RNA sequence: AAUAUAUAAUAGCAAAGCAGUUUAAAGGCUGUGACGCAAAAACAUAAGUCUAAGGGAUUUCCUAUGAUAGUUAUGUUUACCUCA
Numbered sequence: 001a002a003u004a005u006a007u008a009a010u011a012g013c014a015a016a017g018c019a020g021u022u023u024a025a026a027g028g029c030u031g032u033g034a035c036g037c038a039a040a041a042a043c044a045u046a047a048g049u050c051u052a053a054g055g056g057a058u059u060u061c062c063u064a065u066g067a068u069a070g071u072u073a074u075g076u077u078u079a080c081c082u083c084a
Base pairs, nucleotide, nucleotide: 012037013036017032018031019030020029021028022027040078041077042076043075045073046072047071048068049067050066055062056061

The family of this 84-nucleotide RNA from Halanaerobium saccharolyticum is "c-di-GMP-I riboswitch aptamer".
The match comes from Rfam's covariance-model search (55 bits).
NCBI's taxonomy places the organism under Bacteria, Halanaerobiales, Halanaerobiaceae, Halanaerobium saccharolyticum, Halanaerobium saccharolyticum subsp. saccharolyticum.